A member of the RNA family "SAM riboswitch aptamer (S box leader)" from Bhargavaea cecembensis, 113 nucleotides long.
It scores 84 bits against the family's covariance model.
Gene Ontology term of the family: regulation of gene expression.
The SAM riboswitch is found upstream of a number of genes which code for proteins involved in methionine or cysteine biosynthesis in Gram-positive bacteria. The SAM riboswitch acts at the level of transcription termination control. The predicted structure consists of a complex stem-loop region followed by a single stem loop terminator region. An alternative and mutually exclusive form involves bases in the 3' segment of helix 1 with those in the 5' region of helix 5 to form a structure termed the anti-terminator form. This entry represents the conserved core of the complex structure involving helices 1-4.
The family's consensus secondary structure is taken from published work.
[Rfam]
RNA sequence: UUCUUAUCAAGAGAGACCGAGGGACAGGCCCUAGGACGUCUCGGCAGCGGACCCCAUCCAUUGGCGGCACCGUGCUAAUUCCUGCAGAUGUCUAUCCAUCUGGAAGAUGAGAA
Numbered sequence: 001u002u003c004u005u006a007u008c009a010a011g012a013g014a015g016a017c018c019g020a021g022g023g024a025c026a027g028g029c030c031c032u033a034g035g036a037c038g039u040c041u042c043g044g045c046a047g048c049g050g051a052c053c054c055c056a057u058c059c060a061u062u063g064g065c066g067g068c069a070c071c072g073u074g075c076u077a078a079u080u081c082c083u084g085c086a087g088a089u090g091u092c093u094a095u096c097c098a099u100c101u102g103g104a105a106g107a108u109g110a111g112a113a
Base pairs, nucleotide, nucleotide: 001113002112003111004110005109006108007107008106013042014041015040016039017038021031022030023029025084026083027082028081043076044075045074046073048072049071050068052066080105085102086101087100088099089098090097